[Rfam]
RNA: c-di-AMP riboswitch aptamer (ydaO/yuaA leader)
RNA sequence: CAUGACCCAUCGCUGAGUUCCGUAUUGGAAGCGGAGGACCCAAGGUUUUUGGGGUGAAUCGCAGCGCUUGGCUGCGUAGGGGCUCCUACACCCGAACCCGUCAGCUAACUCCGUAAGCGUUGUAGGAAGGUCAG
Numbered sequence: 001c002a003u004g005a006c007c008c009a010u011c012g013c014u015g016a017g018u019u020c021c022g023u024a025u026u027g028g029a030a031g032c033g034g035a036g037g038a039c040c041c042a043a044g045g046u047u048u049u050u051g052g053g054g055u056g057a058a059u060c061g062c063a064g065c066g067c068u069u070g071g072c073u074g075c076g077u078a079g080g081g082g083c084u085c086c087u088a089c090a091c092c093c094g095a096a097c098c099c100g101u102c103a104g105c106u107a108a109c110u111c112c113g114u115a116a117g118c119g120u121u122g123u124a125g126g127a128a129g130g131u132c133a134g
Base pairs, nucleotide, nucleotide: 011119012118013117014116018030019029020028031114032113033112034111035110036109041051042050052099053098054097060076061075062074063073079093080092081091